RNA: mir-7 microRNA precursor family
Organism: Eleutherodactylus coqui
RNA sequence: GGCUGACUCUUUGUGGAAGACUAGUGAUUUUGUUGUUGUAAGCUUAUUUGCAUGACAACAAGUCACAGUCUGCCUCACAGCGCCCAGCG
Numbered sequence: 001g002g003c004u005g006a007c008u009c010u011u012u013g014u015g016g017a018a019g020a021c022u023a024g025u026g027a028u029u030u031u032g033u034u035g036u037u038g039u040a041a042g043c044u045u046a047u048u049u050g051c052a053u054g055a056c057a058a059c060a061a062g063u064c065a066c067a068g069u070c071u072g073c074c075u076c077a078c079a080g081c082g083c084c085c086a087g088c089g
Stems, first nucleotide, its partner, number of pairs: 002088004007082001009080002012077002015074002018071005024066007032059006